[Rfam]
RNA sequence: AGGCAAGGAUGUUCGACUAAAACCUCGGCGUCCAUGCCGAAACGUCGAACGACCCACAUCCUGCGGG
Numbered sequence: 001a002g003g004c005a006a007g008g009a010u011g012u013u014c015g016a017c018u019a020a021a022a023c024c025u026c027g028g029c030g031u032c033c034a035u036g037c038c039g040a041a042a043c044g045u046c047g048a049a050c051g052a053c054c055c056a057c058a059u060c061c062u063g064c065g066g067g
Base pairs, nucleotide, nucleotide: 011050012049013048014047015046016045017044025040026039027038028037029036053067054066055065057063
Dot-bracket structure: ..........(((((((.......(((((......)))))...)))))))..(((.(.....).)))